Shown here is a 54-nucleotide sequence from Megalops atlanticus, a member of the family "UnaL2 LINE 3' element".

RNA sequence: ACGUGUAAACUAUGCAAGUCACUCUGGAUAAGAGUGUCUGCUAAAUGCCAAUAA
Numbered sequence: 001a002c003g004u005g006u007a008a009a010c011u012a013u014g015c016a017a018g019u020c021a022c023u024c025u026g027g028a029u030a031a032g033a034g035u036g037u038c039u040g041c042u043a044a045a046u047g048c049c050a051a052u053a054a
Base pairs, nucleotide, nucleotide: 013043014041015040016039020036021035022034023033024032025031

About the family: The eel long interspersed element (LINE) UnaL2 and its partner short interspersed element (SINE) share a conserved 3' tail containing a stem-loop that is critical for their retrotransposition.
By type it is a cis-regulatory element.